[Rfam]
Annotation: Shown here is a 259-nucleotide sequence from Twortvirus twort, a member of the family "Group I catalytic intron". Pairs were carried over by alignment from the consensus structure, which is taken from published work. A search with the family's covariance model found it, with a score of 101 bits. From the family's description: Group I catalytic introns are large self-splicing ribozymes. Taxonomically the source falls in Twortvirus twort (Viruses, Caudoviricetes, Herelleviridae, Twortvirinae).
Nucleotides: 259
Stems, first nucleotide, its partner, number of pairs: 007025006031042003051202005057196001062092006072083004093115002099109001119237001121236005204223006244257005
Number, partner (000 for none) and nucleotide at each position: 001000u002000u003000a004000u005000c006000a007025g008024c009023a010022u011021a012020a013000a014000a015000u016000u017000a018000u019000c020012u021011u022010g023009u024008g025007c026000c027000u028000u029000u030000a031042c032041a033040c034000a035000g036000u037000a038000a039000u040033g041032u042031g043000u044000a045000u046000u047000g048000a049000a050000a051202a052201c053200u054199c055198c056000u057196u058000u059000a060000a061000u062092u063091c064090a065089u066088g067087g068000g069000a070000a071000a072083u073082c074081u075080u076000a077000a078000u079000u080075a081074a082073g083072a084000c085000a086000a087067u088066c089065a090064u091063g092062a093115g094114c095000c096000a097000a098000g099109c100000c101000u102000a103000g104000c105000a106000a107000u108000a109099g110000g111000a112000a113000g114094g115093u116000g117000c118000a119237a120000c121236g122235a123234c124233u125232a126000g127000a128000g129000a130000a131000a132000g133000g134000g135000u136000a137000g138000c139000u140000u141000a142000c143000u144000a145000u146000u147000a148000u149000a150000g151000g152000u153000a154000g155000u156000a157000a158000g159000u160000g161000a162000g163000a164000a165000c166000c167000g168000a169000g170000u171000a172000u173000c174000g175000u176000a177000c178000g179000c180000u181000c182000a183000a184000g185000u186000g187000a188000g189000u190000g191000g192000a193000a194000a195000u196057g197000g198055g199054g200053a201052g202051u203000g204223u205222c206221c207220u208219a209218g210000a211000g212000u213000a214000a215000c216000g217000a218209c219208u220207a221206g222205g223204a224000u225000a226000a227000u228000g229000a230000u231000a232125u233124a234123g235122u236121c237119u238000g239000a240000a241000c242000a243000u244257a245256u246255a247254u248253g249000g250000a251000a252000a253248c254247a255246u256245a257244u258000a259000g